Shown here is a 69-nucleotide RNA sequence from Oryzias melastigma, a member of the family "Small nucleolar RNA SNORD30". Clan: SNORD30 clan.
[Rfam]
RNA sequence: GAAAGUGAUGAGAUAAUUUGGAAUCUCGUUCGUCUGAACUGCUGUUGAGAAUUUUAACUUCUGAUACCG
Numbered sequence: 001g002a003a004a005g006u007g008a009u010g011a012g013a014u015a016a017u018u019u020g021g022a023a024u025c026u027c028g029u030u031c032g033u034c035u036g037a038a039c040u041g042c043u044g045u046u047g048a049g050a051a052u053u054u055u056a057a058c059u060u061c062u063g064a065u066a067c068c069g
Stems, first nucleotide, its partner, number of pairs: 024050005031044002034041001